[Rfam]
About this RNA: This 97-nucleotide RNA from Weissella koreensis belongs to the Rfam family "Purine riboswitch aptamer". Rfam describes the family as follows. Riboswitches are metabolite binding domains within certain messenger RNAs that serve as precision sensors for their corresponding targets. Taxonomically the source falls in Weissella (Bacteria, Bacillati, Bacilli, Lactobacillales). Pairs were carried over by alignment from the consensus structure, which is taken from published work. A search with the family's covariance model found it, with a score of 52 bits.
RNA sequence: AUUGAAUAAUACCGAAUGUUUAGUAUAAUCGUUGGAGAAUGGCCAACGAGUUCCUACCUGCACCGAAACGCAGACUACUAGAUGAAGCUUUUUGGCG
Numbered sequence: 001a002u003u004g005a006a007u008a009a010u011a012c013c014g015a016a017u018g019u020u021u022a023g024u025a026u027a028a029u030c031g032u033u034g035g036a037g038a039a040u041g042g043c044c045a046a047c048g049a050g051u052u053c054c055u056a057c058c059u060g061c062a063c064c065g066a067a068a069c070g071c072a073g074a075c076u077a078c079u080a081g082a083u084g085a086a087g088c089u090u091u092u093u094g095g096c097g
Base pairs, nucleotide, nucleotide: 018083019082020081021080022079023078024077025076029049030048031047032046033045034044035043058073059072060071061070